[Rfam]
RNA sequence: GCGGCGAAUGCCGAAGGAACUACAUCGAUCUGACGGUCGCGGGUUCGAAUCCCGUCAGCCAACUGCAAAGUUGGCUGUAGCUCAGCGGUAGAGCAUCAGCAAUGUUUCUUCAAACCCUUGUCGCCGUGCU
Numbered sequence: 001g002c003g004g005c006g007a008a009u010g011c012c013g014a015a016g017g018a019a020c021u022a023c024a025u026c027g028a029u030c031u032g033a034c035g036g037u038c039g040c041g042g043g044u045u046c047g048a049a050u051c052c053c054g055u056c057a058g059c060c061a062a063c064u065g066c067a068a069a070g071u072u073g074g075c076u077g078u079a080g081c082u083c084a085g086c087g088g089u090a091g092a093g094c095a096u097c098a099g100c101a102a103u104g105u106u107u108c109u110u111c112a113a114a115c116c117c118u119u120g121u122c123g124c125c126g127u128g129c130u
Stems, first nucleotide, its partner, number of pairs: 002126006013111007023099001032097002039055005046088001056077009080094004
RNA: Y RNA-like
Organism: Adhaeretor mobilis